A member of the RNA family "Makes More Granules Regulator RNA (mmgR)" from Novosphingobium sp. MD-1, 78 nucleotides long. The family's RNA type in Rfam is small RNA. NCBI's taxonomy places the organism under Bacteria, Pseudomonadati, Pseudomonadota, Alphaproteobacteria, Novosphingobium. Its family is annotated with protein binding, DNA-templated transcription, termination and response to nitrogen compound in the Gene Ontology. Rfam describes the family as follows. SuhB later renamed mmgR (makes more granules regulator) was a putative non-coding RNA found multiple times in the Agrobacterium tumefaciens genome and related alpha-proteobacteria. Other non-coding RNAs uncovered in the same analysis include: speF, ybhL, metA, and serC.Several studies inSinorhizobium meliloti showed that suhB element is indeed a non-coding RNA:firstly it was detected on Northern blot and called Sm8RNA, secondly in an RNAseq study referred to as SmelC689.The mutant phenotype's (strain lacking the small RNA) cytoplasm contains higher content of polyhydroxybutyrate (PBH)storage granules than wild type strain. The sRNA is required to limit the PBH intracellular accumulation when the nitrogen-fixing Sinorhizobium meliloti is under condition of surplus carbon in relation to nitrogen. The match comes from Rfam's covariance-model search (42 bits).

RNA sequence: GGAGCGGGCCUUUCAGGCAUCCUCUCCCAAACUUUCAAGGGCCGACCGGGCAACUGGUCGGCCCCUUUUUUGUCUGCG
Numbered sequence: 001g002g003a004g005c006g007g008g009c010c011u012u013u014c015a016g017g018c019a020u021c022c023u024c025u026c027c028c029a030a031a032c033u034u035u036c037a038a039g040g041g042c043c044g045a046c047c048g049g050g051c052a053a054c055u056g057g058u059c060g061g062c063c064c065c066u067u068u069u070u071u072g073u074c075u076g077c078g
Base pairs, nucleotide, nucleotide: 008018009017010016011015040063041062042061043060044059045058046057047056048055
Dot-bracket structure: .......((((...)))).....................(((((((((......)))))))))...............